This 167-nucleotide RNA sequence from Clostridium taeniosporum belongs to the Rfam family "Lysine riboswitch aptamer". The match comes from Rfam's covariance-model search (98 bits).
[Rfam]
RNA sequence: ACCUAAGGUAGAGGAGCUGUUUAUAAAGAGUACUUAUUAGGAGUCGGCAGAUGUUGAUUAAUAAGGAAAGGUAUAAUGGCCGAAGAAAUGAAUCAAGCAAAAAUUUAUUUCUGGGUAUGCAUAAAAUAUAUGUAUAACUGUCACGUAAGUGGAGAGCUACAAGGAUG
Numbered sequence: 001a002c003c004u005a006a007g008g009u010a011g012a013g014g015a016g017c018u019g020u021u022u023a024u025a026a027a028g029a030g031u032a033c034u035u036a037u038u039a040g041g042a043g044u045c046g047g048c049a050g051a052u053g054u055u056g057a058u059u060a061a062u063a064a065g066g067a068a069a070g071g072u073a074u075a076a077u078g079g080c081c082g083a084a085g086a087a088a089u090g091a092a093u094c095a096a097g098c099a100a101a102a103a104u105u106u107a108u109u110u111c112u113g114g115g116u117a118u119g120c121a122u123a124a125a126a127u128a129u130a131u132g133u134a135u136a137a138c139u140g141u142c143a144c145g146u147a148a149g150u151g152g153a154g155a156g157c158u159a160c161a162a163g164g165a166u167g
Base pairs, nucleotide, nucleotide: 008160009159010158011157016080017079018078019077020076021075023074024073025072033065034064035063036062037061038060039059040058084112085111086110087109088108089107090106091105092104093103113139114138116136117135118134119133120132121131122130123129141152142151143150144149